[Rfam]
RNA sequence: GGUCCAGAGCGGACAGCGCACAGCCUCCCGGCUUGCUGUCCCGGCAACCUCGCUCCGCACAAGGUGCCUCCGGGAGAAGACCGGGUCGACCGCGUCCGCGGUCGGCAAGGGUGGGGC
Numbered sequence: 001g002g003u004c005c006a007g008a009g010c011g012g013a014c015a016g017c018g019c020a021c022a023g024c025c026u027c028c029c030g031g032c033u034u035g036c037u038g039u040c041c042c043g044g045c046a047a048c049c050u051c052g053c054u055c056c057g058c059a060c061a062a063g064g065u066g067c068c069u070c071c072g073g074g075a076g077a078a079g080a081c082c083g084g085g086u087c088g089a090c091c092g093c094g095u096c097c098g099c100g101g102u103c104g105g106c107a108a109g110g111g112u113g114g115g116g117c
Base pairs, nucleotide, nucleotide: 001082002081003080004079009042012040013039014038015037016036017035022033023032043068044067045066048064049063050062052060085106086105087104088103089102090101091100092099093098
The record is a 117-nucleotide RNA sequence from Geodermatophilus sp. Leaf369, which matches "SAM (S-adenosyl methionine) riboswitch aptamer" in Rfam.
Rfam links the family to the GO terms regulation of gene expression and S-adenosylmethionine metabolic process.
It scores 78 bits against the family's covariance model.
Pairs were carried over by alignment from the consensus structure, which is taken from published work.
On this family, see Weinberg et al., RNA 2008: "The aptamer core of SAM-IV riboswitches mimics the ligand-binding site of SAM-I riboswitches".